[Rfam]
This 135-nucleotide RNA sequence from Trichobilharzia regenti belongs to the Rfam family "U11 spliceosomal RNA". By type it is a spliceosomal small nuclear RNA. The match comes from Rfam's covariance-model search (69 bits). A reference for the family is Montzka and Steitz (1988), "Additional low-abundance human small nuclear ribonucleoproteins: U11, U12, etc", Proc Natl Acad Sci U S A.
RNA sequence: AAAAAGGGCCUCCAUCAUGUUUAUGUGAUGGACAGUUCAUUACUAAAAUGACUGGGUGGAAUAGCAAUCAAGACAUUUCAGAGGCAUAAUAUUUGAGCACGGGAGAGUCAGCUACAAAUUUUGGCUGACGUCCCA
Numbered sequence: 001a002a003a004a005a006g007g008g009c010c011u012c013c014a015u016c017a018u019g020u021u022u023a024u025g026u027g028a029u030g031g032a033c034a035g036u037u038c039a040u041u042a043c044u045a046a047a048a049u050g051a052c053u054g055g056g057u058g059g060a061a062u063a064g065c066a067a068u069c070a071a072g073a074c075a076u077u078u079c080a081g082a083g084g085c086a087u088a089a090u091a092u093u094u095g096a097g098c099a100c101g102g103g104a105g106a107g108u109c110a111g112c113u114a115c116a117a118a119u120u121u122u123g124g125c126u127g128a129c130g131u132c133c134c135a
Base pairs, nucleotide, nucleotide: 008085009084010083011082012081013030014029015028016027017026018025019024033054034053035052036051038050039049040048041047057080058079059078060077061076062075102133103132104131107129108128109127110126111125115123116122117121